ryfA RNA: a 297-nucleotide RNA sequence from Serratia proteamaculans.
RNA sequence: GUGGGCUUUUCCGCCACCUUAAGCAAGUGGGCAUCGGUUUUGGGGAAAGGAUUCCAAUAGCCGUAAAUGCAAGCACGACCCGGUGCUUGUCUUUCACGGCAAUAUCGCCGGUGGUGUUGCCGUGAAGCGGUUUGAGCAUGGACCGCACAAUGAAACGAUACUUUUGUGUUGUGCUCGUUGUAUCUGGUGUGAUGUUGUCGUCUGGAAAGGGAAGUUGGAAUCUCUCCGACAACGUUAUUUCAGUAACAAUCUAUCACCAGAGCAAGUAAGCCAGAUGGCCGCUUGGCGGCCAUCUUU
Numbered sequence: 001g002u003g004g005g006c007u008u009u010u011c012c013g014c015c016a017c018c019u020u021a022a023g024c025a026a027g028u029g030g031g032c033a034u035c036g037g038u039u040u041u042g043g044g045g046a047a048a049g050g051a052u053u054c055c056a057a058u059a060g061c062c063g064u065a066a067a068u069g070c071a072a073g074c075a076c077g078a079c080c081c082g083g084u085g086c087u088u089g090u091c092u093u094u095c096a097c098g099g100c101a102a103u104a105u106c107g108c109c110g111g112u113g114g115u116g117u118u119g120c121c122g123u124g125a126a127g128c129g130g131u132u133u134g135a136g137c138a139u140g141g142a143c144c145g146c147a148c149a150a151u152g153a154a155a156c157g158a159u160a161c162u163u164u165u166g167u168g169u170u171g172u173g174c175u176c177g178u179u180g181u182a183u184c185u186g187g188u189g190u191g192a193u194g195u196u197g198u199c200g201u202c203u204g205g206a207a208a209g210g211g212a213a214g215u216u217g218g219a220a221u222c223u224c225u226c227c228g229a230c231a232a233c234g235u236u237a238u239u240u241c242a243g244u245a246a247c248a249a250u251c252u253a254u255c256a257c258c259a260g261a262g263c264a265a266g267u268a269a270g271c272c273a274g275a276u277g278g279c280c281g282c283u284u285g286g287c288g289g290c291c292a293u294c295u296u297u
Stems, first nucleotide, its partner, number of pairs: 007048006014030004031038002060188003070089007093126009103116005127146007147181007155172007189267002193264004211223001213221001243254002274295001276292007